[Rfam]
RNA sequence: UAAGUUAAAAAUCUCCGAGCCGGUGAGCCUUAGCCGAAGAGGUAUGGCUGCCUGGCCGUUAGGGUGCAGCGGGAAACUGUUGCGCCUCCCACUCAGGAAAGGAGAACAUAUGCUUUAAGA
Numbered sequence: 001u002a003a004g005u006u007a008a009a010a011a012u013c014u015c016c017g018a019g020c021c022g023g024u025g026a027g028c029c030u031u032a033g034c035c036g037a038a039g040a041g042g043u044a045u046g047g048c049u050g051c052c053u054g055g056c057c058g059u060u061a062g063g064g065u066g067c068a069g070c071g072g073g074a075a076a077c078u079g080u081u082g083c084g085c086c087u088c089c090c091a092c093u094c095a096g097g098a099a100a101g102g103a104g105a106a107c108a109u110a111u112g113c114u115u116u117a118a119g120a
Base pairs, nucleotide, nucleotide: 003114004113012105013104014103015102016101019056020055021054022053023052026049027048028047029046033043034042035041062087063086064085065084066083067082068081069080070079071078072077088097089096
RNA: Molybdenum/Tungsten riboswitch aptamer (Moco RNA motif)